The record is a 421-nucleotide RNA sequence from Nitrospira moscoviensis, which matches "Bacterial RNase P class A" in Rfam. Gene Ontology terms of the family: tRNA processing, ribonuclease P activity and dimeric ribonuclease P complex. From the family's description: Ribonuclease P (RNase P) is a ubiquitous endoribonuclease, found in archaea, bacteria and eukarya as well as chloroplasts and mitochondria. Its best characterised activity is the generation of mature 5'-ends of tRNAs by cleaving the 5'-leader elements of precursor-tRNAs. Cellular RNase Ps are ribonucleoproteins.
RNA sequence: UGCGAAGACCGGGUGAUCGCUCGAUACUCCGGUAUCGGGAGGAAAGUCCGGACUCCAUGGGCAGGGCGCUGGGUAACUCCCAGGCGGAGCAAUCCGACACCGGCACCACAGAAAACAAACCGCCGAUGGCCAAGGCGACGGGAUCCCAUCUGGUCGCUGCGGCUCAGGUAAGGGUGAAACGGCGGGGUAAGAGCCCACCGCGGCGGUGGUGACAUCGCCGGCACGGUAAGCGUCGCCCGGUGCAAGGCCAAAUAGGAAGACACCUGGCCGCUCGCAAGAGUGGCACAGAACGGCCGGCCCGGCCGAGUCUUCGGGUAGGUCGCUUGAGGUUCGGGGCAACUCGAAUCCCAGAGAAAUGAUCAUCCAUGCAGCGGCGCAAGCCGCCGCAGGACAGAAUCCGGCUUAUAGGUCUUCGCCCCGC
Numbered sequence: 001u002g003c004g005a006a007g008a009c010c011g012g013g014u015g016a017u018c019g020c021u022c023g024a025u026a027c028u029c030c031g032g033u034a035u036c037g038g039g040a041g042g043a044a045a046g047u048c049c050g051g052a053c054u055c056c057a058u059g060g061g062c063a064g065g066g067c068g069c070u071g072g073g074u075a076a077c078u079c080c081c082a083g084g085c086g087g088a089g090c091a092a093u094c095c096g097a098c099a100c101c102g103g104c105a106c107c108a109c110a111g112a113a114a115a116c117a118a119a120c121c122g123c124c125g126a127u128g129g130c131c132a133a134g135g136c137g138a139c140g141g142g143a144u145c146c147c148a149u150c151u152g153g154u155c156g157c158u159g160c161g162g163c164u165c166a167g168g169u170a171a172g173g174g175u176g177a178a179a180c181g182g183c184g185g186g187g188u189a190a191g192a193g194c195c196c197a198c199c200g201c202g203g204c205g206g207u208g209g210u211g212a213c214a215u216c217g218c219c220g221g222c223a224c225g226g227u228a229a230g231c232g233u234c235g236c237c238c239g240g241u242g243c244a245a246g247g248c249c250a251a252a253u254a255g256g257a258a259g260a261c262a263c264c265u266g267g268c269c270g271c272u273c274g275c276a277a278g279a280g281u282g283g284c285a286c287a288g289a290a291c292g293g294c295c296g297g298c299c300c301g302g303c304c305g306a307g308u309c310u311u312c313g314g315g316u317a318g319g320u321c322g323c324u325u326g327a328g329g330u331u332c333g334g335g336g337c338a339a340c341u342c343g344a345a346u347c348c349c350a351g352a353g354a355a356a357u358g359a360u361c362a363u364c365c366a367u368g369c370a371g372c373g374g375c376g377c378a379a380g381c382c383g384c385c386g387c388a389g390g391a392c393a394g395a396a397u398c399c400g401g402c403u404u405a406u407a408g409g410u411c412u413u414c415g416c417c418c419c420g421c
Stems, first nucleotide, its partner, number of pairs: 002416009011406001012364007020039008044404003048401005053242001055240002059300004064238005069083005084098001085096004099233002103231002105227003120173002122169003128163001130161001181199002184196003200222001201220008246321004256312006291305005328347008
Dot-bracket structure: .(((((((((((((((((.((((((((....))))))))....[[[.[[[[[(.((..[[[[.((((((((((.....)))))(((((....)))).)((..(((((............(((((...(.(..............................).)...)))..)).......((.(((.......))).))(((((((((....)))))))).)..)))..))))))))))).)...((((......((((((.............................(((((.]]]]))))).)))))).....))))......((((((((....))))))))..........)))))))................................]]]]]]]].).))))))))).....